Rfam assigns this 73-nucleotide sequence from Lutibaculum baratangense to the family "tRNA".
The family's RNA type in Rfam is transfer RNA.
From the family's description: Transfer RNA (tRNA) molecules are approximately 80 nucleotides in length.
Lineage of the source: Bacteria > Pseudomonadota > Tepidamorphaceae > Lutibaculum > Lutibaculum baratangense.
RNA sequence: UCCCUGGUAGCUCAGUUGGUAGAGCGAGCGGCUGUUAACCGCUAGGUCGUUGGUUCGAGCCCAACCCGGGGAG
Numbered sequence: 001u002c003c004c005u006g007g008u009a010g011c012u013c014a015g016u017u018g019g020u021a022g023a024g025c026g027a028g029c030g031g032c033u034g035u036u037a038a039c040c041g042c043u044a045g046g047u048c049g050u051u052g053g054u055u056c057g058a059g060c061c062c063a064a065c066c067c068g069g070g071g072a073g
Stems, first nucleotide, its partner, number of pairs: 001072007010025004027043005049065005